A member of the RNA family "Small nucleolar RNA SNORA81" from Aotus nancymaae, 184 nucleotides long.
A search with the family's covariance model found it, with a score of 68 bits.
Rfam links the family to the GO terms nucleolus and RNA processing.
The base pairs follow the family's consensus structure, which was predicted with WAR.
On this family, see Gu et al., Nucleic Acids Res 2005: "A novel experimental approach for systematic identification of box H/ACA snoRNAs from eukaryotes".
RNA sequence: AUCUUCUUGUUUAAGCUCUGUUCUAAAAUUGCGAAAGUAGUAUCAUUUCUUAGCAUUUGUAAUAAAGCUAUCAGAGAAAACACAAGAAGAAAAAACAACUAAACAACUGUACCAGAUAGAAGAAAAACUGAGUUGAACCUCUUUUUUAUUUGUUUGUUUUUGUUUUUGUUUUGAGACGGAGUCU
Numbered sequence: 001a002u003c004u005u006c007u008u009g010u011u012u013a014a015g016c017u018c019u020g021u022u023c024u025a026a027a028a029u030u031g032c033g034a035a036a037g038u039a040g041u042a043u044c045a046u047u048u049c050u051u052a053g054c055a056u057u058u059g060u061a062a063u064a065a066a067g068c069u070a071u072c073a074g075a076g077a078a079a080a081c082a083c084a085a086g087a088a089g090a091a092a093a094a095a096c097a098a099c100u101a102a103a104c105a106a107c108u109g110u111a112c113c114a115g116a117u118a119g120a121a122g123a124a125a126a127a128c129u130g131a132g133u134u135g136a137a138c139c140u141c142u143u144u145u146u147u148a149u150u151u152g153u154u155u156g157u158u159u160u161u162g163u164u165u166u167u168g169u170u171u172u173g174a175g176a177c178g179g180a181g182u183c184u
Stems, first nucleotide, its partner, number of pairs: 018076002021073001024070002029065003034057002037054002039051002042048001108178003113173004130160001132158001134156004
Dot-bracket structure: .................((.(..((...(((..((.((((.(.....).)).)).)).....)))...))..).))...............................(((..((((.............(.(.((((...............)))).).).........))))..)))......